[Rfam]
RNA sequence: GGAUAGCACUUUUUGUUAUCUCAGACUAAUAACACAAUGACAUGUGGGAUCAUUUUUUCACAUGUUAUUGUGUUAUUGACCGGAAAUAGCAAAAUAGUGCUAUUU
Numbered sequence: 001g002g003a004u005a006g007c008a009c010u011u012u013u014u015g016u017u018a019u020c021u022c023a024g025a026c027u028a029a030u031a032a033c034a035c036a037a038u039g040a041c042a043u044g045u046g047g048g049a050u051c052a053u054u055u056u057u058u059c060a061c062a063u064g065u066u067a068u069u070g071u072g073u074u075a076u077u078g079a080c081c082g083g084a085a086a087u088a089g090c091a092a093a094a095u096a097g098u099g100c101u102a103u104u105u
Stems, first nucleotide, its partner, number of pairs: 002104004011094009021084002024081001027078023
A member of the RNA family "MIR6274 microRNA precursor family" from Prunus persica, 105 nucleotides long. The family has 2 seed sequences and 342 matches in Rfam 15.1. Its family is annotated with RISC complex and miRNA-mediated post-transcriptional gene silencing in the Gene Ontology. It scores 81 bits against the family's covariance model. Lineage of the source: Eukaryota > Streptophytina > Spermatophyta > fabids > Prunus. Pairs were carried over by alignment from the consensus structure, which was predicted with RNAalifold.